A member of the RNA family "Bacillus sRNA ncr1575" from Aneurinibacillus soli, 200 nucleotides long.
RNA sequence: UUAAUAAUAGCAGAAGGAGUGAUGGGUGGACGAUGAUUAACUAAUCUUAUUUUUAAAAUUUGAAAUCACAUAUUUCAAAUCAUACAAAAUAGGAUUAGUCUGCCCAUUUUCUAUAAAUUGUAGAGCUAUUAAUGAAAAUAGCUUAUUUCAUCAUGUAAAGGUACGGCUAAUCCUUCCAAAUGAACGGGGAGGAUUUUUUU
Numbered sequence: 001u002u003a004a005u006a007a008u009a010g011c012a013g014a015a016g017g018a019g020u021g022a023u024g025g026g027u028g029g030a031c032g033a034u035g036a037u038u039a040a041c042u043a044a045u046c047u048u049a050u051u052u053u054u055a056a057a058a059u060u061u062g063a064a065a066u067c068a069c070a071u072a073u074u075u076c077a078a079a080u081c082a083u084a085c086a087a088a089a090u091a092g093g094a095u096u097a098g099u100c101u102g103c104c105c106a107u108u109u110u111c112u113a114u115a116a117a118u119u120g121u122a123g124a125g126c127u128a129u130u131a132a133u134g135a136a137a138a139u140a141g142c143u144u145a146u147u148u149c150a151u152c153a154u155g156u157a158a159a160g161g162u163a164c165g166g167c168u169a170a171u172c173c174u175u176c177c178a179a180a181u182g183a184a185c186g187g188g189g190a191g192g193a194u195u196u197u198u199u200u
Stems, first nucleotide, its partner, number of pairs: 016112004023106004029100003042097012058080009120149001122147001125142006169195009
The match comes from Rfam's covariance-model search (160 bits). For this family Rfam cites "Identification of regulatory RNAs in Bacillus subtilis" (Irnov et al., Nucleic Acids Res, 2010). Taxonomically the source falls in Aneurinibacillus (Bacteria, Bacillota, Bacilli, Caryophanales).